[Rfam]
Nucleotides: 095
Base pairs, nucleotide, nucleotide: 006019009018010017032061033060034059035058036057043054044053045052046051
Number, partner (000 for none) and nucleotide at each position: 001000c002000u003000a004000c005000c006019u007000g008000a009018u010017g011000a012000a013000c014000a015000a016000c017010c018009a019006a020000a021000u022000c023000a024000a025000a026000a027000g028000c029000a030000u031000a032061g033060u034059u035058c036057a037000c038000c039000u040000g041000a042000a043054g044053a045052u046051c047000u048000u049000c050000g051046g052045a053044u054043c055000g056000c057036u058035g059034a060033a061032c062000g063000a064000c065000a066000a067000c068000c069000u070000u071000u072000a073000u074000c075000c076000a077000u078000c079000u080000u081000u082000c083000a084000c085000c086000u087000u088000a089000u090000c091000u092000g093000a094000u095000u
Background: A. fumigatus snoRNA Afu_263: a 95-nucleotide RNA sequence from Penicillium capsulatum. It is annotated as a C/D-box small nucleolar RNA. Its Rfam clan is "SNORD77 clan". Gene Ontology terms of the family: nucleolus and RNA processing.